The record is a 104-nucleotide sequence from Paramaledivibacter caminithermalis, which matches "Purine riboswitch aptamer" in Rfam.
The family's consensus secondary structure is taken from published work.
RNA sequence: AAAACAUCAUAAAUGUUCACUUAUAUAAAUCUAGCAAUAUGGGCUAGAUGUCUCUACCUAACUACCGUAAAUAGUUGUAGGCUAUAAGUGCAAUAAGCUUAUUA
Numbered sequence: 001a002a003a004a005c006a007u008c009a010u011a012a013a014u015g016u017u018c019a020c021u022u023a024u025a026u027a028a029a030u031c032u033a034g035c036a037a038u039a040u041g042g043g044c045u046a047g048a049u050g051u052c053u054c055u056a057c058c059u060a061a062c063u064a065c066c067g068u069a070a071a072u073a074g075u076u077g078u079a080g081g082c083u084a085u086a087a088g089u090g091c092a093a094u095a096a097g098c099u100u101a102u103u104a
Stems, first nucleotide, its partner, number of pairs: 018090008029049007058080001059077006